[Rfam]
RNA sequence: GAGUCUAACAUGCCCGCGAGUACAGGGGUGUUCAAACCCCCGUGCGCAGUGAAAGUGAAUGCAGGUGGGAAGCCGCAAGGUGGCACCAUCGACCGACCAUGUCUCUUCGGGGGCGAGGUUUGAGUGUGAGCGUGCAUGUUGGGACCCGAAAGAUGGUGAACUAUGCCUGAAUAGGGCGAAGCCAGGGGAAACUCUGGUGGAGGCUCGUAGCGAUUCUGACGUGCAAAUCGAUCGUGAGAUUUGGGUAUAGGGGCGAAAGACUAAUCGAACCAUCUAGUAGCUGGUU
Number, nucleotide and partner (000 for none) at each position: 001g000002a000003g000004u000005c142006u141007a140008a139009c138010a137011u136012g135013c134014c000015c132016g131017c130018g000019a000020g045021u044022a043023c000024a000025g040026g039027g038028g037029u036030g000031u000032u000033c000034a000035a000036a029037c028038c027039c026040c025041c000042g000043u022044g021045c020046g000047c000048a000049g056050u055051g000052a000053a000054a000055g050056u049057g000058a000059a000060u000061g000062c000063a000064g090065g089066u088067g087068g086069g000070a000071a000072g081073c080074c000075g000076c000077a000078a000079g000080g073081u072082g000083g000084c000085a000086c068087c067088a066089u065090c064091g000092a125093c124094c122095g121096a120097c118098c117099a000100u000101g000102u000103c112104u111105c000106u000107u000108c000109g000110g000111g104112g103113g000114c000115g000116a000117g098118g097119u000120u096121u095122g094123a000124g093125u092126g000127u000128g000129a000130g017131c016132g015133u000134g013135c012136a011137u010138g009139u008140u007141g006142g005143g000144a000145c284146c283147c000148g281149a000150a000151a000152g274153a273154u272155g271156g270157u269158g000159a000160a000161c250162u249163a248164u247165g246166c245167c244168u243169g242170a241171a240172u238173a000174g206175g205176g204177c203178g000179a000180a000181g198182c197183c196184a195185g194186g193187g192188g000189a000190a000191a000192c187193u186194c185195u184196g183197g182198u181199g000200g000201a000202g000203g177204c176205u175206c174207g000208u000209a000210g235211c234212g233213a232214u000215u231216c230217u000218g229219a228220c000221g000222u000223g000224c000225a000226a000227a000228u219229c218230g216231a215232u213233c212234g211235u210236g000237a000238g172239a000240u171241u170242u169243g168244g167245g166246u165247a164248u163249a162250g161251g000252g262253g261254c000255g000256a000257a000258a000259g000260a000261c253262u252263a000264a000265u000266c000267g000268a000269a157270c156271c155272a154273u153274c152275u000276a000277g000278u000279a000280g000281c148282u000283g146284g145285u000286u000
The family of this 286-nucleotide part of an RNA from Ectocarpus siliculosus is "Eukaryotic large subunit ribosomal RNA". Rfam 15.1 lists 107,465 matches to the family in 2,616 species. The sequence is in the family's curated seed alignment.